The record is a 54-nucleotide RNA sequence from Salvelinus namaycush, which matches "UnaL2 LINE 3' element" in Rfam.
[Rfam]
RNA sequence: UGCACUCACUAAUGUAAGUCGCUCUGCAUAAGACCGUCUGCUAAAUGACUCAUG
Numbered sequence: 001u002g003c004a005c006u007c008a009c010u011a012a013u014g015u016a017a018g019u020c021g022c023u024c025u026g027c028a029u030a031a032g033a034c035c036g037u038c039u040g041c042u043a044a045a046u047g048a049c050u051c052a053u054g
Stems, first nucleotide, its partner, number of pairs: 013043001014041003020036002023033003